[Rfam]
RNA sequence: CUUCACCGAGCCGAGCAGAAGAGGCCGCUCCCGAUCCUGCCCGUAGGUGGCCAGCAGGGCCUGCGCCUC
Numbered sequence: 001c002u003u004c005a006c007c008g009a010g011c012c013g014a015g016c017a018g019a020a021g022a023g024g025c026c027g028c029u030c031c032c033g034a035u036c037c038u039g040c041c042c043g044u045a046g047g048u049g050g051c052c053a054g055c056a057g058g059g060c061c062u063g064c065g066c067c068u069c
Stems, first nucleotide, its partner, number of pairs: 015025002028065001030063001032059001037054003041050003